[Rfam]
A member of the RNA family "Transposase-1 RNA", 56 nucleotides long.
RNA sequence: UAAGAGUUAGUCAAUGCGAUUACUCCUAAAUUGGAAUAUCGGAAUACUGGUAUUGA
Numbered sequence: 001u002a003a004g005a006g007u008u009a010g011u012c013a014a015u016g017c018g019a020u021u022a023c024u025c026c027u028a029a030a031u032u033g034g035a036a037u038a039u040c041g042g043a044a045u046a047c048u049g050g051u052a053u054u055g056a
Stems, first nucleotide, its partner, number of pairs: 006051006017041004024035003
Record summary
By type it is a small RNA.